Record summary: Shown here is a 78-nucleotide sequence from Malus baccata, a member of the family "MIR473 microRNA precursor family". Rfam links the family to the GO terms miRNA-mediated post-transcriptional gene silencing and RISC complex. Pairs were carried over by alignment from the consensus structure, which was predicted with WAR. Rfam 15.1 lists 189 matches to the family in 90 species.
[Rfam]
RNA sequence: GUUGCUCACUCUCCCUCAAGGGCUUCGACCAAUGUCAGACAUGGUGAGCUCGAAGACUUGGGGGAGAGUGGAUAAAAA
Numbered sequence: 001g002u003u004g005c006u007c008a009c010u011c012u013c014c015c016u017c018a019a020g021g022g023c024u025u026c027g028a029c030c031a032a033u034g035u036c037a038g039a040c041a042u043g044g045u046g047a048g049c050u051c052g053a054a055g056a057c058u059u060g061g062g063g064g065a066g067a068g069u070g071g072a073u074a075a076a077a078a
Stems, first nucleotide, its partner, number of pairs: 006071010017061001019059003023055004